[Rfam]
RNA sequence: CUCCGGGUGUGGGCUAAUACAAGACCGGCUUGCCGGGAAUAUGCCCGCCGUUCCAAGGACGGUUUUGAGCACCCGGAGUUUUCUAU
Dot-bracket structure: (((((((((..(((((........(((......)))...)).))).(((((.......)))))......)))))))))........
Shown here is an 86-nucleotide RNA from Bilophila wadsworthia, a member of the family "sRNA-Xcc1". NCBI's taxonomy places the organism under Bacteria, Thermodesulfobacteriota, Desulfovibrionia, Desulfovibrionales, Bilophila wadsworthia. The family has 74 seed sequences and 421 matches in Rfam 15.1. The family's RNA type in Rfam is small RNA. A search with the family's covariance model found it, with a score of 55 bits. For this family Rfam cites "sRNA-Xcc1, an integron-encoded transposon- and plasmid-transferred trans-acting sRNA, is under the positive control of the key virulence regulators HrpG and HrpX of Xanthomonas campestris pathovar campestris" (Chen et al., RNA Biol, 2011).